[Rfam]
RNA sequence: GCAUGGCUAUGGAUUUAUGGUGGGAUCUGUCCUGUGAUCCCCUCAUAGUGUACUCCAUGCUAAAACAAACUGCUGCCCCAAACCAUUGACAGGCCUGGAACCUCUGUGGGUCUUGUUCACUGAUGUGGGCUGCACACGA
Numbered sequence: 001g002c003a004u005g006g007c008u009a010u011g012g013a014u015u016u017a018u019g020g021u022g023g024g025a026u027c028u029g030u031c032c033u034g035u036g037a038u039c040c041c042c043u044c045a046u047a048g049u050g051u052a053c054u055c056c057a058u059g060c061u062a063a064a065a066c067a068a069a070c071u072g073c074u075g076c077c078c079c080a081a082a083c084c085a086u087u088g089a090c091a092g093g094c095c096u097g098g099a100a101c102c103u104c105u106g107u108g109g110g111u112c113u114u115g116u117u118c119a120c121u122g123a124u125g126u127g128g129g130c131u132g133c134a135c136a137c138g139a
Base pairs, nucleotide, nucleotide: 001060002059003058004057005055006054008052015048016047017046018045019044020043022041023040024039026036073132075130076129077128078127084122085121089117091113092112093111094110095109096108